[Rfam]
RNA sequence: UUUCUGCUGUUACGAUUUAUGAACUAAAAUUCACAUGUCAGACUUCAGAGAUUUUUCCAAAGAUCAAUGAGAAGAUAGUUUCAUUUUUCCUGAGCAGAUA
Dot-bracket structure: (.(((((..........................................((((........))))............................))))).)

Background
The record is a 100-nucleotide RNA sequence from Striga asiatica, which matches "Small nucleolar RNA R64/Z200 family" in Rfam. The source organism's lineage runs through Eukaryota, Viridiplantae, Tracheophyta, Lamiales and Striga. The family's RNA type in Rfam is C/D-box small nucleolar RNA. The base pairs follow the family's consensus structure, which was predicted with PFOLD. It scores 84 bits against the family's covariance model. The literature on the family includes a 2002 paper in Mol Cell Biol by Galardi et al., "Purified box C/D snoRNPs are able to reproduce site-specific 2'-O-methylation of target RNA in vitro".